The family of this 135-nucleotide RNA sequence from Limosilactobacillus coleohominis is "Ribosomal protein L20 leader". On this family, see Zengel and Lindahl, Prog Nucleic Acid Res Mol Biol 1994: "Diverse mechanisms for regulating ribosomal protein synthesis in Escherichia coli". From the family's description: This family is a putative r-protein leader autoregulatory structure found in B. subtilis and other low-GC Gram-positive bacteria. It is located in the 5' untranslated regions of mRNAs encoding initiation factor 3 followed by ribosomal proteins L35 and L20 (infC-rpmI-rplT). A Rho-independent transcription terminator structure that is probably involved in regulation is included at the 3' end. Taxonomically the source falls in Limosilactobacillus coleohominis (Bacteria, Bacillati, Lactobacillales, Limosilactobacillus). A search with the family's covariance model found it, with a score of 69 bits. It is annotated as a cis-regulatory leader.

RNA sequence: AAAGAAAAGCAGAAGCGCCCGCUUCUCGCCUUGGUGACUAGAGUCGCCGGGCUGACGAGUUGAAUGAAUCUAGAUUACGGAUGUGAUUUAGUAUUUUCAAGCGGGGUGGUUUGCACCUCGCUUUUUUUGCUUGUU
Numbered sequence: 001a002a003a004g005a006a007a008a009g010c011a012g013a014a015g016c017g018c019c020c021g022c023u024u025c026u027c028g029c030c031u032u033g034g035u036g037a038c039u040a041g042a043g044u045c046g047c048c049g050g051g052c053u054g055a056c057g058a059g060u061u062g063a064a065u066g067a068a069u070c071u072a073g074a075u076u077a078c079g080g081a082u083g084u085g086a087u088u089u090a091g092u093a094u095u096u097u098c099a100a101g102c103g104g105g106g107u108g109g110u111u112u113g114c115a116c117c118u119c120g121c122u123u124u125u126u127u128u129g130c131u132u133g134u135u
Base pairs, nucleotide, nucleotide: 011026012025013024014023015022016021028052029051030050034047035046036045037044038043100122101121102120103119104118105117106116107115108114